[Rfam]
RNA sequence: UAAAUGGGUUAAUGCUACCCAGGGCUGUCCACCAUACCGUGAGAUGGCUACACGAGAGGUCCCAAGACUGCAUCAAUCGGCCGAGAUGCGUAAGACCGAUGGCAAGUUAAAUCUUUGAGAGUCUUGUCGCAUACGGACGUGCAAACCCGGAGAAUGGGGUGGGACUCCUCUGAAAUCCGGUGCGCUUCAUUUGGUGGGAAGCCCAAACAAGUUGAAACACGCUGACUGUUGUCGCGUUGGCGGUAUAUUAUACUUGA
Numbered sequence: 001u002a003a004a005u006g007g008g009u010u011a012a013u014g015c016u017a018c019c020c021a022g023g024g025c026u027g028u029c030c031a032c033c034a035u036a037c038c039g040u041g042a043g044a045u046g047g048c049u050a051c052a053c054g055a056g057a058g059g060u061c062c063c064a065a066g067a068c069u070g071c072a073u074c075a076a077u078c079g080g081c082c083g084a085g086a087u088g089c090g091u092a093a094g095a096c097c098g099a100u101g102g103c104a105a106g107u108u109a110a111a112u113c114u115u116u117g118a119g120a121g122u123c124u125u126g127u128c129g130c131a132u133a134c135g136g137a138c139g140u141g142c143a144a145a146c147c148c149g150g151a152g153a154a155u156g157g158g159g160u161g162g163g164a165c166u167c168c169u170c171u172g173a174a175a176u177c178c179g180g181u182g183c184g185c186u187u188c189a190u191u192u193g194g195u196g197g198g199a200a201g202c203c204c205a206a207a208c209a210a211g212u213u214g215a216a217a218c219a220c221g222c223u224g225a226c227u228g229u230u231g232u233c234g235c236g237u238u239g240g241c242g243g244u245a246u247a248u249u250a251u252a253c254u255u256g257a
Stems, first nucleotide, its partner, number of pairs: 005021005022204004030196005036190001038054004059138004077099004100129006209255004220242007
RNA: Hairpin ribozyme 2 from viruses-like metatranscriptomes